RNA sequence: UAUGAAGACUGGUGGCAGUUAUUAGUUCAUAGAUAACUGAGGAAAGUCCGUACUCGCACUUACUGGAAUCGUAAGUAGUUUUAGUGCAAGGUCUAAUAAACCUUGGCAGGUCUGCGUUCUCUUUCCUGACGGCUGGCAAAUUACCUAAAUACCUUUUCUCUCUGGGUAUAUGGUAUAAUAGCCUAUAAAAGUGCCAUAGUGACGAUUACUUGGGAAACCAAGGAAGUGGAACGACGUAAACCCCGCUAGCGAGCAAUCCAAAUUCUUUAAAUGGUAGGAGCAUCAAAGAAAGAGAAAAAUAAUCUCAAUUGAUAAUUCCCGCAAGGGAGUUAAGAUAAAUCACUGGUUAAAAACAGAAUACGGCUUAUUCUU
Numbered sequence: 001u002a003u004g005a006a007g008a009c010u011g012g013u014g015g016c017a018g019u020u021a022u023u024a025g026u027u028c029a030u031a032g033a034u035a036a037c038u039g040a041g042g043a044a045a046g047u048c049c050g051u052a053c054u055c056g057c058a059c060u061u062a063c064u065g066g067a068a069u070c071g072u073a074a075g076u077a078g079u080u081u082u083a084g085u086g087c088a089a090g091g092u093c094u095a096a097u098a099a100a101c102c103u104u105g106g107c108a109g110g111u112c113u114g115c116g117u118u119c120u121c122u123u124u125c126c127u128g129a130c131g132g133c134u135g136g137c138a139a140a141u142u143a144c145c146u147a148a149a150u151a152c153c154u155u156u157u158c159u160c161u162c163u164g165g166g167u168a169u170a171u172g173g174u175a176u177a178a179u180a181g182c183c184u185a186u187a188a189a190a191g192u193g194c195c196a197u198a199g200u201g202a203c204g205a206u207u208a209c210u211u212g213g214g215a216a217a218c219c220a221a222g223g224a225a226g227u228g229g230a231a232c233g234a235c236g237u238a239a240a241c242c243c244c245g246c247u248a249g250c251g252a253g254c255a256a257u258c259c260a261a262a263u264u265c266u267u268u269a270a271a272u273g274g275u276a277g278g279a280g281c282a283u284c285a286a287a288g289a290a291a292g293a294g295a296a297a298a299a300u301a302a303u304c305u306c307a308a309u310u311g312a313u314a315a316u317u318c319c320c321g322c323a324a325g326g327g328a329g330u331u332a333a334g335a336u337a338a339a340u341c342a343c344u345g346g347u348u349a350a351a352a353a354c355a356g357a358a359u360a361c362g363g364c365u366u367a368u369u370c371u372u
Base pairs, nucleotide, nucleotide: 004372005371007368008347009346010345011344012343013342014341016039017038018037019036020035021034022033023032044366045365046364048363049362050361051360052359053253054252055251056250057249058076059075060074061073062072063071082248083247084246085245086244087105088104089103090102091101092100106130107128108127109126110125131243132242135183136182137181142175143174144173145172149169150168151167152166153165154164191241192240193237194236206225207224209222210221211220212219213218257279258278259277283312284311285310286309313332314331315330316329317328318327319326320325
Rfam assigns this 372-nucleotide sequence to the family "Bacterial RNase P class B". Gene Ontology terms of the family: tRNA processing, dimeric ribonuclease P complex and ribonuclease P activity. The literature on the family includes a 1998 paper in Annu Rev Biochem by Frank and Pace, "Ribonuclease P: unity and diversity in a tRNA processing ribozyme". The match comes from Rfam's covariance-model search (208 bits). Rfam's curators write: Ribonuclease P (RNase P) is a ubiquitous endoribonuclease, found in archaea, bacteria and eukarya as well as chloroplasts and mitochondria. By type it is a ribozyme.